[Rfam]
RNA sequence: GGACGGUGACGAUUGUUUCAGUGAAAGGUCUCGUUCGUCGUAAUGGCGUUGACGAAACGCCUUGCCGACCAUCCUGAUAUAUCACCACCCAUAUUCUGAGUCU
Numbered sequence: 001g002g003a004c005g006g007u008g009a010c011g012a013u014u015g016u017u018u019c020a021g022u023g024a025a026a027g028g029u030c031u032c033g034u035u036c037g038u039c040g041u042a043a044u045g046g047c048g049u050u051g052a053c054g055a056a057a058c059g060c061c062u063u064g065c066c067g068a069c070c071a072u073c074c075u076g077a078u079a080u081a082u083c084a085c086c087a088c089c090c091a092u093a094u095u096c097u098g099a100g101u102c103u
Stems, first nucleotide, its partner, number of pairs: 001103004048063001
Shown here is a 103-nucleotide RNA sequence from Camphora micrantha, a member of the family "Small nucleolar RNA Z43". It is annotated as a C/D-box small nucleolar RNA. On this family, see Chen et al., Nucleic Acids Res 2003: "The high diversity of snoRNAs in plants: identification and comparative study of 120 snoRNA genes from Oryza sativa". Taxonomically the source falls in Camphora (Eukaryota, Euphyllophyta, Magnoliopsida, Magnoliidae). Rfam links the family to the GO terms nucleolus and RNA processing. A search with the family's covariance model found it, with a score of 91 bits. The family has 7 seed sequences and 859 matches in Rfam 15.1.